Source information: chrB-b RNA: a 48-nucleotide RNA.
RNA sequence: CGGGGUAAUGCAGACACCCCGUUAGACGGCGCGCCGUCCAAGCUCUGC
Numbered sequence: 001c002g003g004g005g006u007a008a009u010g011c012a013g014a015c016a017c018c019c020c021g022u023u024a025g026a027c028g029g030c031g032c033g034c035c036g037u038c039c040a041a042g043c044u045c046u047g048c
Stems, first nucleotide, its partner, number of pairs: 001021006010048005025038005